Bacterial large subunit ribosomal RNA: a 246-nucleotide part of an RNA from Finegoldia magna. Pairs were carried over by alignment from the consensus structure, which is taken from published work.
[Rfam]
RNA sequence: AGAAAUUUGAGAGGAUCUGUCCUUAGUACGAGAGGACCGGGAUGGACAGACCGCUGGUGUACGAGUUGUACUGCCAAGUGCACAGCUCGGUAGCUACGUCUGGGAAGGAUAAGUGCUGAAGGCAUCUAAGCACGAAACCAACCUCGAGAUAAGAUUUCUAUGAGAUUACUUGAAGAAAACAAGAUAGAUAGGUCAGAGGUGUAAAGAUAGUAAUAUCAAAGCUAACUGAUACUAAUAAAUCGAAAA
Numbered sequence: 001a002g003a004a005a006u007u008u009g010a011g012a013g014g015a016u017c018u019g020u021c022c023u024u025a026g027u028a029c030g031a032g033a034g035g036a037c038c039g040g041g042a043u044g045g046a047c048a049g050a051c052c053g054c055u056g057g058u059g060u061a062c063g064a065g066u067u068g069u070a071c072u073g074c075c076a077a078g079u080g081c082a083c084a085g086c087u088c089g090g091u092a093g094c095u096a097c098g099u100c101u102g103g104g105a106a107g108g109a110u111a112a113g114u115g116c117u118g119a120a121g122g123c124a125u126c127u128a129a130g131c132a133c134g135a136a137a138c139c140a141a142c143c144u145c146g147a148g149a150u151a152a153g154a155u156u157u158c159u160a161u162g163a164g165a166u167u168a169c170u171u172g173a174a175g176a177a178a179a180c181a182a183g184a185u186a187g188a189u190a191g192g193u194c195a196g197a198g199g200u201g202u203a204a205a206g207a208u209a210g211u212a213a214u215a216u217c218a219a220a221g222c223u224a225a226c227u228g229a230u231a232c233u234a235a236u237a238a239a240u241c242g243a244a245a246a
Base pairs, nucleotide, nucleotide: 001159002158003157004156005155006154007153008152011145012144013143014142017045018044019043020042021041022040023039047102048101049100050099051098055096056095057094062089063088064087065086066085067082068081069080070079071078072077107139108138113133114132115131116130117129164241165240166239167238169183170182171181172180189234190233191232192230193229194228195227196226198223199222202218206217207216208215209214